Nucleotides: 116
Base pairs, nucleotide, nucleotide: 004036005035006034007033008032009031013030014029015028016027017026018025044076045075046074047073048071049070051068052067053066054065055064081109083107084106085105086104087103088102090101091100092099
Number, partner (000 for none) and nucleotide at each position: 001000a002000u003000a004036a005035c006034c007033u008032u009031u010000a011000a012000a013030u014029u015028a016027g017026c018025c019000c020000c021000g022000u023000g024000a025018g026017g027016c028015u029014a030013a031009g032008a033007a034006g035005g036004u037000a038000a039000u040000a041000a042000a043000u044076a045075u046074u047073c048071u049070a050000u051068g052067u053066a054065u055064a056000g057000g058000a059000u060000a061000a062000a063000a064055u065054a066053u067052a068051c069000c070049u071048a072000g073047g074046g075045a076044u077000a078000u079000u080000u081109g082000u083107a084106c085105c086104u087103u088102c089000u090101u091100g092099c093000c094000c095000a096000c097000g098000u099092g100091c101090a102088g103087a104086a105085g106084g107083u108000u109081u110000u111000u112000c113000u114000a115000u116000u
Source information
Shown here is a 116-nucleotide RNA sequence from Caldisalinibacter kiritimatiensis, a member of the family "PyrR binding site". Rfam 15.1 lists 1,498 matches to the family in 930 species. A reference for the family is Bonner et al. (2001), "Molecular recognition of pyr mRNA by the Bacillus subtilis attenuation regulatory protein PyrR", Nucleic Acids Res. A search with the family's covariance model found it, with a score of 60 bits. Pairs were carried over by alignment from the consensus structure, which is taken from published work.